[Rfam]
RNA sequence: GCGGGGCUGCUCGGUUUGUUGAGGCAGCUACAUCCCCGGGGCCAAUGAGCAACCUCCGGGAGCUGGCGCUGCUUGGAUCCUGGUCCAAGUACCUGGCGCCCACCUGCAACAGCAGGUCCAUGGAGGAUGUCACGCCGACGGCUAUGGCGGCUCCGCA
Numbered sequence: 001g002c003g004g005g006g007c008u009g010c011u012c013g014g015u016u017u018g019u020u021g022a023g024g025c026a027g028c029u030a031c032a033u034c035c036c037c038g039g040g041g042c043c044a045a046u047g048a049g050c051a052a053c054c055u056c057c058g059g060g061a062g063c064u065g066g067c068g069c070u071g072c073u074u075g076g077a078u079c080c081u082g083g084u085c086c087a088a089g090u091a092c093c094u095g096g097c098g099c100c101c102a103c104c105u106g107c108a109a110c111a112g113c114a115g116g117u118c119c120a121u122g123g124a125g126g127a128u129g130u131c132a133c134g135c136c137g138a139c140g141g142c143u144a145u146g147g148c149g150g151c152u153c154c155g156c157a
Base pairs, nucleotide, nucleotide: 002155003154004153005152006151007150008149009148010147011146013143014142015141017140018139019138033125035123036122039119040118041117042116043115058101059100060099062097063096064095065094066093071090072089073088074087075086076085077084